[Rfam]
RNA: Plastid-ycf3 group II-D1 intron
Organism: Coptis chinensis
RNA sequence: AUUCUUUUUGUCGUGCAUCCUCGGUUGAUGCAGCCUUAGACGCUUCA
Numbered sequence: 001a002u003u004c005u006u007u008u009u010g011u012c013g014u015g016c017a018u019c020c021u022c023g024g025u026u027g028a029u030g031c032a033g034c035c036u037u038a039g040a041c042g043c044u045u046c047a
Base pairs, nucleotide, nucleotide: 010025011024012023013022032044033043034042